Shown here is an 83-nucleotide RNA from Leptobrachium leishanense, a member of the family "mir-221 microRNA precursor family". For this family Rfam cites "MicroRNA profile of Marek's disease virus-transformed T-cell line MSB-1: predominance of virus-encoded microRNAs" (Yao et al., J Virol, 2008). Rfam links the family to the GO terms RISC complex and miRNA-mediated post-transcriptional gene silencing. Pairs were carried over by alignment from the consensus structure, which was predicted with RNAalifold.

Nucleotides: 083
Base pairs, nucleotide, nucleotide: 013067014066015065016064017063018062020060021059022058023056024055025054026053027052028051032050033049034048035047
Number, partner (000 for none) and nucleotide at each position: 001000g002000a003000u004000g005000u006000u007000g008000u009000u010000c011000g012000c013067u014066c015065a016064g017063u018062a019000a020060u021059c022058a023056g024055u025054g026053u027052a028051g029000a030000u031000c032050c033049u034048g035047u036000a037000a038000u039000u040000u041000a042000a043000a044000u045000c046000a047035g048034c049033a050032g051028c052027u053026a054025c055024a056023u057000c058022u059021g060020g061000c062018u063017a064016c065015u066014g067013g068000g069000u070000c071000u072000c073000c074000a075000a076000c077000a078000u079000u080000g081000u082000u083000g